The record is an 80-nucleotide RNA sequence from Hucho hucho, which matches "Small nucleolar RNA SNORD53/SNORD92" in Rfam.
Lineage of the source: Eukaryota > Neopterygii > Teleostei > Protacanthopterygii > Hucho.
For this family Rfam cites "RNomics: an experimental approach that identifies 201 candidates for novel, small, non-messenger RNAs in mouse" (Huttenhofer et al., EMBO J, 2001).
The family has 37 seed sequences and 2,250 matches in Rfam 15.1.
A search with the family's covariance model found it, with a score of 57 bits.
RNA sequence: UUAAUAUGAUGAUUCUGAGAAUGGUUUCGCAAACAAUGCUGAAAUAUGUGAUGUCACGUUUCUCUUGGCUAUCUGAUUAA
Number, nucleotide and partner (000 for none) at each position: 001u080002u079003a078004a077005u000006a000007u000008g000009a000010u000011g000012a000013u000014u000015c000016u000017g000018a000019g000020a000021a000022u000023g000024g000025u000026u000027u000028c000029g000030c000031a000032a000033a000034c000035a000036a000037u000038g000039c000040u000041g000042a000043a000044a000045u000046a000047u000048g000049u000050g000051a000052u000053g000054u000055c000056a000057c000058g000059u000060u000061u000062c000063u000064c000065u000066u000067g000068g000069c000070u000071a000072u000073c000074u000075g000076a000077u004078u003079a002080a001